[Rfam]
Annotation
This 129-nucleotide RNA from Pan troglodytes belongs to the Rfam family "U4 spliceosomal RNA". The source organism's lineage runs through Eukaryota, Mammalia, Eutheria, Boreoeutheria and Pan. On this family, see Zwieb, Nucleic Acids Res 1997: "The uRNA database".
RNA sequence: ACUUCUUCCCUUUGGUGGUAUUGUAGCCAAUGAGGUUUAUCCGAGGUGUGAUUAUUGCUAAUUGAAAACUUCCCAACACUCCGCCAUGACGACUUGCAAUAUAGUAGGCAUUGGCAAAAAAAAAAAAAA
Dot-bracket structure: ...................(((((.(((.....((.....))..))))))))..............................((((((.(.(((........))).).))).)))..............